[Rfam]
RNA: mir-34 microRNA precursor family
RNA sequence: GGUCCUCAGGCAGUGUAGUUAGCUGAUUACGAUGCUAAGUAAUCACUAACCUCACGGCCAGGUGAAC
Numbered sequence: 001g002g003u004c005c006u007c008a009g010g011c012a013g014u015g016u017a018g019u020u021a022g023c024u025g026a027u028u029a030c031g032a033u034g035c036u037a038a039g040u041a042a043u044c045a046c047u048a049a050c051c052u053c054a055c056g057g058c059c060a061g062g063u064g065a066a067c
Stems, first nucleotide, its partner, number of pairs: 003065002006062001009059002013055003018050005024045007